[Rfam]
RNA sequence: CAGCAUGCUAACCUAAGGACCUGAGCUUGUCCAUAGCGUGUGGUUCUCCAACAGCAUGCUAGAUGAUGGGGUGGUCUUUGACUGUUGUGGCCCCACCGUGCCAUCAGCAGCCACUCAACUGUCCAACAAAC
Numbered sequence: 001c002a003g004c005a006u007g008c009u010a011a012c013c014u015a016a017g018g019a020c021c022u023g024a025g026c027u028u029g030u031c032c033a034u035a036g037c038g039u040g041u042g043g044u045u046c047u048c049c050a051a052c053a054g055c056a057u058g059c060u061a062g063a064u065g066a067u068g069g070g071g072u073g074g075u076c077u078u079u080g081a082c083u084g085u086u087g088u089g090g091c092c093c094c095a096c097c098g099u100g101c102c103a104u105c106a107g108c109a110g111c112c113a114c115u116c117a118a119c120u121g122u123c124c125a126a127c128a129a130a131c
Stems, first nucleotide, its partner, number of pairs: 013042001018037001022033002069124006084111002087104004
A member of the RNA family "Small nucleolar RNA SNORA44" from Gouania willdenowi, 131 nucleotides long. A search with the family's covariance model found it, with a score of 60 bits. ACA44 is a member of the H/ACA class of snoRNA that guide the sites of modification of uridines to pseudouridines. On this family, see Huttenhofer et al., EMBO J 2001: "RNomics: an experimental approach that identifies 201 candidates for novel, small, non-messenger RNAs in mouse". Rfam classes the family as an H/ACA-box small nucleolar RNA. Lineage of the source: Eukaryota > Chordata > Gnathostomata > Euteleostomi > Gouania.